[Rfam]
The record is a 373-nucleotide sequence from a Planctomycetaceae bacterium, which matches "Bacterial RNase P class A" in Rfam. Taxonomically the source falls in Planctomycetaceae (Bacteria, Pseudomonadati, Planctomycetia, Planctomycetales).
RNA sequence: CGAGCGGUCCGGACAGCCGCCGGCUGCAAGGCGGGAGGAAAGUCCGGGCUCCACAGAGCAGGAGGGUUGCUAACGGCAACCGGGCGGAAGCCCAGGGAAAGUGGCACAGAAAACAAACCGCCCCAACGUAUCGGGGUAAGGGUGAAAAGGUGCGGUAAGAGCGCACCGCGAGCCCUGGUGACAGGGCCGGCAGGCUAAACCCCCUCCGGAGCAAGGCCAAAUAGGAGUCGAGGCGCUGCUCGCGCCGACAGAAGUCAAAGACUCGGGUAGGCUGCUUGAGCCUGCCGGCAACGGCAGGCCUAGACGAAUGGCUGUCAUUCCGUGUUGGCAACGACACGGAACACAAGACCCGGCUUACAGGGCCGCUCACAAG
Numbered sequence: 001c002g003a004g005c006g007g008u009c010c011g012g013a014c015a016g017c018c019g020c021c022g023g024c025u026g027c028a029a030g031g032c033g034g035g036a037g038g039a040a041a042g043u044c045c046g047g048g049c050u051c052c053a054c055a056g057a058g059c060a061g062g063a064g065g066g067u068u069g070c071u072a073a074c075g076g077c078a079a080c081c082g083g084g085c086g087g088a089a090g091c092c093c094a095g096g097g098a099a100a101g102u103g104g105c106a107c108a109g110a111a112a113a114c115a116a117a118c119c120g121c122c123c124c125a126a127c128g129u130a131u132c133g134g135g136g137u138a139a140g141g142g143u144g145a146a147a148a149g150g151u152g153c154g155g156u157a158a159g160a161g162c163g164c165a166c167c168g169c170g171a172g173c174c175c176u177g178g179u180g181a182c183a184g185g186g187c188c189g190g191c192a193g194g195c196u197a198a199a200c201c202c203c204c205u206c207c208g209g210a211g212c213a214a215g216g217c218c219a220a221a222u223a224g225g226a227g228u229c230g231a232g233g234c235g236c237u238g239c240u241c242g243c244g245c246c247g248a249c250a251g252a253a254g255u256c257a258a259a260g261a262c263u264c265g266g267g268u269a270g271g272c273u274g275c276u277u278g279a280g281c282c283u284g285c286c287g288g289c290a291a292c293g294g295c296a297g298g299c300c301u302a303g304a305c306g307a308a309u310g311g312c313u314g315u316c317a318u319u320c321c322g323u324g325u326u327g328g329c330a331a332c333g334a335c336a337c338g339g340a341a342c343a344c345a346a347g348a349c350c351c352g353g354c355u356u357a358c359a360g361g362g363c364c365g366c367u368c369a370c371a372a373g
Base pairs, nucleotide, nucleotide: 002368003367004366005365006364007363008362009361010360011358012316013315014314015313016312017311018310020035021034023032024031025030040356041355042354044353045352046351047350048349049211050210051209052208059242061207062206063205064204065203066080067079068078069077070076081095082093083092084091085090096202097201101200102199103196104195105194118141119140120137121136122135123134124133126131149167150166151165152164153163154162168191169189170188172187173186174185175184176183177182215273216272217271218270225264226263227262228261229260280299281298282297283296284295285294286293287292
Its family is annotated with tRNA processing, ribonuclease P activity and dimeric ribonuclease P complex in the Gene Ontology. The family's consensus secondary structure is taken from published work. It is annotated as a ribozyme.